[Rfam]
RNA sequence: UCUGCACCCAAACCCAAAGGUCAUAUCGUCUCCGUGGUAUGAUUCUGUCUGGAGUGCAAACAGGAAGCUGAUCCUUGUCGCCUUUCUCUGCUGCUGCCGUGCCUCUGAAAGUGAAUUCAAGGGUCAACAAGU
Number, nucleotide and partner (000 for none) at each position: 001u000002c000003u058004g057005c056006a055007c054008c000009c052010a000011a000012a000013c000014c000015c000016a000017a000018a000019g044020g043021u042022c041023a040024u039025a038026u037027c036028g035029u000030c000031u000032c000033c000034g000035u028036g027037g026038u025039a024040u023041g022042a021043u020044u019045c000046u000047g000048u000049c000050u000051g000052g009053a000054g007055u006056g005057c004058a003059a000060a000061c000062a000063g000064g000065a000066a000067g000068c000069u000070g125071a124072u123073c122074c121075u120076u119077g000078u000079c000080g000081c000082c111083u110084u109085u108086c107087u000088c000089u000090g102091c101092u000093g000094c000095u000096g000097c000098c000099g000100u000101g091102c090103c000104u000105c000106u000107g086108a085109a084110a083111g082112u000113g000114a000115a000116u000117u000118c000119a076120a075121g074122g073123g072124u071125c070126a000127a000128c000129a000130a000131g000132u000
The record is a 132-nucleotide RNA from Stegastes partitus, which matches "Small nucleolar RNA SNORA68" in Rfam. It scores 72 bits against the family's covariance model. By type it is an H/ACA-box small nucleolar RNA. Taxonomically the source falls in Stegastes (Eukaryota, Bilateria, Teleostomi, Osteoglossocephalai). U68 is a member of the H/ACA class of small nucleolar RNAs (snoRNAs) which act as guides in the the modification of uridines to pseudouridines. For this family Rfam cites "The family of box ACA small nucleolar RNAs is defined by an evolutionarily conserved secondary structure and ubiquitous sequence elements essential for RNA accumulation" (Ganot et al., Genes Dev, 1997).